Guanidine-I riboswitch aptamer: a 133-nucleotide sequence from Bacillus taeanensis. It scores 82 bits against the family's covariance model.
RNA sequence: AAAAAAGCUGUCUAGGGUUCCGUUUCUGUGUUGAAUAUCUCCUUAUUCAAUAUAGGAAGUCUGGUCCGAGAGAGAGCGUACAGCGGCAGGCAAUCGCCAGCUGUAUACACGGAAGGAUAAAAGCCUGGGAGAC
Numbered sequence: 001a002a003a004a005a006a007g008c009u010g011u012c013u014a015g016g017g018u019u020c021c022g023u024u025u026c027u028g029u030g031u032u033g034a035a036u037a038u039c040u041c042c043u044u045a046u047u048c049a050a051u052a053u054a055g056g057a058a059g060u061c062u063g064g065u066c067c068g069a070g071a072g073a074g075a076g077c078g079u080a081c082a083g084c085g086g087c088a089g090g091c092a093a094u095c096g097c098c099a100g101c102u103g104u105a106u107a108c109a110c111g112g113a114a115g116g117a118u119a120a121a122a123g124c125c126u127g128g129g130a131g132a133c
Stems, first nucleotide, its partner, number of pairs: 007077003011073002015067002020064002022061001023058015078106007108128001110131001114126003